[Rfam]
RNA sequence: AUGGAUCUUCGGGGUAAGGUGAAAUUCCUGACCGGCGGUGAGGUUCCUCUGUUCCAUGGGAAGAGAGGGGCUUAAGCCCGCGACUCGUUUACCGCGUGUUGUCCGCGGUUGGCGACUGACUUGGUGCGAUUCCAAGGCCGACGGUAUAGUCCGGAUGGGAGAAGAUCAAA
Number, nucleotide and partner (000 for none) at each position: 001a000002u000003g000004g167005a166006u165007c164008u163009u162010c161011g000012g000013g000014g000015u000016a000017a029018g028019g027020u000021g000022a000023a000024a000025u000026u000027c019028c018029u017030g000031a150032c149033c140034g139035g081036c080037g079038g078039u000040g000041a000042g000043g000044u000045u000046c000047c000048u000049c000050u000051g000052u000053u000054c000055c000056a000057u000058g000059g000060g000061a000062a000063g000064a000065g000066a000067g000068g000069g000070g000071c000072u000073u000074a000075a000076g138077c137078c038079c037080g036081c035082g000083a000084c000085u115086c114087g113088u112089u111090u000091a000092c000093c000094g000095c000096g000097u000098g000099u000100u000101g000102u000103c000104c000105g000106c000107g000108g000109u000110u000111g089112g088113c087114g086115a085116c000117u000118g000119a000120c136121u135122u134123g133124g132125u000126g000127c000128g000129a000130u000131u000132c124133c123134a122135a121136g120137g077138c076139c034140g033141a000142c153143g152144g151145u000146a000147u000148a000149g032150u031151c144152c143153g142154g000155a000156u000157g000158g000159g000160a000161g010162a009163a008164g007165a006166u005167c004168a000169a000170a000
The record is a 170-nucleotide RNA sequence from Paenibacillus macerans, which matches "FMN riboswitch aptamer (RFN element)" in Rfam. Lineage of the source: Bacteria > Bacilli > Caryophanales > Paenibacillaceae > Paenibacillus. A search with the family's covariance model found it, with a score of 109 bits.